[Rfam]
RNA sequence: UUUUUCUUUUUUCUUCGGCAGUUAACUGCAGCCGGUUCUUUAACUUCGGUAGUUAACUGCUGCAGGAGUAU
Numbered sequence: 001u002u003u004u005u006c007u008u009u010u011u012u013c014u015u016c017g018g019c020a021g022u023u024a025a026c027u028g029c030a031g032c033c034g035g036u037u038c039u040u041u042a043a044c045u046u047c048g049g050u051a052g053u054u055a056a057c058u059g060c061u062g063c064a065g066g067a068g069u070a071u
Base pairs, nucleotide, nucleotide: 012067013066015064016062017061018060019059020058021057022056023055024054025053026052027051028050029049
Background: This 71-nucleotide RNA sequence from Medicago truncatula belongs to the Rfam family "MIR2629 microRNA precursor family". It scores 65 bits against the family's covariance model. Gene Ontology terms of the family: miRNA-mediated post-transcriptional gene silencing and RISC complex.